[Rfam]
Rfam assigns this 87-nucleotide sequence from Triticum turgidum to the family "mir-399 microRNA precursor family". The match comes from Rfam's covariance-model search (65 bits). A reference for the family is Jones-Rhoades and Bartel (2004), "Computational Identification of Plant MicroRNAs and Their Targets, Including a Stress-Induced miRNA", Mol Cell. Rfam's curators write: mir-399 was identified in both Arabidopsis thaliana and Oryza sativa computationally and was later experimentally verified. mir-399 is thought to target mRNAs coding for a phosphatase transporter. The family has 13 seed sequences and 2,396 matches in Rfam 15.1.
RNA sequence: AGCUGCAUCGCUGGGCAAGUCUCCUUUGGCAGUGGUUGGUUGUUUGCUGAGGCCACUGCCAAAGGAGACCCGCCCAGUAAUGCAUGG
Numbered sequence: 001a002g003c004u005g006c007a008u009c010g011c012u013g014g015g016c017a018a019g020u021c022u023c024c025u026u027u028g029g030c031a032g033u034g035g036u037u038g039g040u041u042g043u044u045u046g047c048u049g050a051g052g053c054c055a056c057u058g059c060c061a062a063a064g065g066a067g068a069c070c071c072g073c074c075c076a077g078u079a080a081u082g083c084a085u086g087g
Stems, first nucleotide, its partner, number of pairs: 005083004011077006019069001021067004027061011